[Rfam]
A member of the RNA family "mir-196 microRNA precursor family" from Electrophorus electricus, 75 nucleotides long.
Its family is annotated with RISC complex and gene silencing by miRNA in the Gene Ontology.
Lineage of the source: Eukaryota > Eumetazoa > Vertebrata > Euteleostomi > Electrophorus.

RNA sequence: UGAGUGAUUUAGGUAGUUUUAUGUUGUUGGGCUCUGUUUCCUACCCCCACAACACGAAACUGUCUUAAUUGCCUU
Numbered sequence: 001u002g003a004g005u006g007a008u009u010u011a012g013g014u015a016g017u018u019u020u021a022u023g024u025u026g027u028u029g030g031g032c033u034c035u036g037u038u039u040c041c042u043a044c045c046c047c048c049a050c051a052a053c054a055c056g057a058a059a060c061u062g063u064c065u066u067a068a069u070u071g072c073c074u075u
Stems, first nucleotide, its partner, number of pairs: 004072006011065009022054006029047003